[Rfam]
RNA sequence: UUUCAAGGAACCCAGCCACAAGGGCUGUUCACGGUCCUGACCGUAGGUGGCCAGCAGGGCCUGGACCUC
Numbered sequence: 001u002u003u004c005a006a007g008g009a010a011c012c013c014a015g016c017c018a019c020a021a022g023g024g025c026u027g028u029u030c031a032c033g034g035u036c037c038u039g040a041c042c043g044u045a046g047g048u049g050g051c052c053a054g055c056a057g058g059g060c061c062u063g064g065a066c067c068u069c
Stems, first nucleotide, its partner, number of pairs: 014026004028065003032059001037054003041050003
This 69-nucleotide RNA sequence from Streptomyces dangxiongensis belongs to the Rfam family "ASpks TB sRNA". Pairs were carried over by alignment from the consensus structure, which is taken from published work.